[Rfam]
RNA sequence: GUCCUCGUCAAUGCUGCGUUUCUAUGCCACAAACAGAUGCGUUGAUUACAUCGACGUUUUCAAAUCAAUUGCAUAUGAGAAAUUCGGAGUAAUCUUCAACUUUACCUAUUCUUAGUCUUAAGAUUAAGUAACUGGUCUGCCCGUGAGGGUUCAGCGUAAUCUUACGCCUGCAAUUGGCAUCAGAAAAGCAGGACAGCGAGAAUCUGUUUGUUUGCAUCUAUUGACGGUGCUUCAGGCAGUUUUCUAACUGUUCCUAUGGGAGAGUCGUUGCGAAGAUUGUGUGUGCAUGAGCAUGACACUUGAGUGCAAUACGCAGCGUGCUAUCUUCAUGUAUUUCGAUAUUUGAAGUAGUACAAUUCGAUUCCGAUUACUCUGACGAGGAC
Numbered sequence: 001g002u003c004c005u006c007g008u009c010a011a012u013g014c015u016g017c018g019u020u021u022c023u024a025u026g027c028c029a030c031a032a033a034c035a036g037a038u039g040c041g042u043u044g045a046u047u048a049c050a051u052c053g054a055c056g057u058u059u060u061c062a063a064a065u066c067a068a069u070u071g072c073a074u075a076u077g078a079g080a081a082a083u084u085c086g087g088a089g090u091a092a093u094c095u096u097c098a099a100c101u102u103u104a105c106c107u108a109u110u111c112u113u114a115g116u117c118u119u120a121a122g123a124u125u126a127a128g129u130a131a132c133u134g135g136u137c138u139g140c141c142c143g144u145g146a147g148g149g150u151u152c153a154g155c156g157u158a159a160u161c162u163u164a165c166g167c168c169u170g171c172a173a174u175u176g177g178c179a180u181c182a183g184a185a186a187a188g189c190a191g192g193a194c195a196g197c198g199a200g201a202a203u204c205u206g207u208u209u210g211u212u213u214g215c216a217u218c219u220a221u222u223g224a225c226g227g228u229g230c231u232u233c234a235g236g237c238a239g240u241u242u243u244c245u246a247a248c249u250g251u252u253c254c255u256a257u258g259g260g261a262g263a264g265u266c267g268u269u270g271c272g273a274a275g276a277u278u279g280u281g282u283g284u285g286c287a288u289g290a291g292c293a294u295g296a297c298a299c300u301u302g303a304g305u306g307c308a309a310u311a312c313g314c315a316g317c318g319u320g321c322u323a324u325c326u327u328c329a330u331g332u333a334u335u336u337c338g339a340u341a342u343u344u345g346a347a348g349u350a351g352u353a354c355a356a357u358u359c360g361a362u363u364c365c366g367a368u369u370a371c372u373c374u375g376a377c378g379a380g381g382a383c
Stems, first nucleotide, its partner, number of pairs: 001383004008376003013317007023075004036052004041047001085366005094275004139150004154167004170271004176266003190255003318354007
Overview: The record is a 383-nucleotide RNA from Golovinomyces cichoracearum, which matches "Nuclear RNase P" in Rfam.